[Rfam]
Rfam assigns this 160-nucleotide sequence from Streptomyces somaliensis to the family "c-di-AMP riboswitch aptamer (ydaO/yuaA leader)". Rfam links the family to the GO terms cyclic-di-AMP binding and regulation of gene expression. The pairing is the family consensus, mapped onto this sequence. Taxonomically the source falls in Streptomyces somaliensis (Bacteria, Bacillati, Kitasatosporales, Streptomycetaceae). The match comes from Rfam's covariance-model search (56 bits).
RNA sequence: CCGGAAUCCGCACCCAUCCACGUGUGGCAGGAGCGGGGGAACCAGGUAGUCCGCCGGACGGGAAUUCCCGAACGGCUCGGGGUGAAGUCGCGCCACCCGCGCGGCCGGGCAUCUCCAGCCCGAACCCGACAGCUCACCUCGCAGGCGCCGGAGAGGAAUC
Dot-bracket structure: ((....(((....................)))((((((....(...................................)(((.....((((.........))))..((((.......))))...))).........)))))).))...............